[Rfam]
Nucleotides: 074
Base pairs, nucleotide, nucleotide: 014039015038018074019073020072021071022070023069024068025037026036027035046063047062048061049060050059051058052057
Number, partner (000 for none) and nucleotide at each position: 001000u002000a003000c004000u005000u006000u007000c008000a009000a010000c011000u012000u013000u014039u015038c016000a017000a018074a019073g020072c021071a022070g023069a024068a025037g026036u027035g028000c029000u030000c031000a032000c033000g034000u035027c036026g037025u038015g039014g040000c041000c042000u043000u044000a045000u046063c047062a048061g049060a050059u051058u052057c053000u054000a055000a056000u057052g058051a059050a060049u061048c062047u063046g064000c065000g066000a067000a068024u069023u070022c071021u072020g073019c074018u
Rfam assigns this 74-nucleotide sequence from Alligator sinensis to the family "Mammalian CPEB3 ribozyme". The source organism's lineage runs through Eukaryota, Opisthokonta, Metazoa, Sauropsida and Alligator.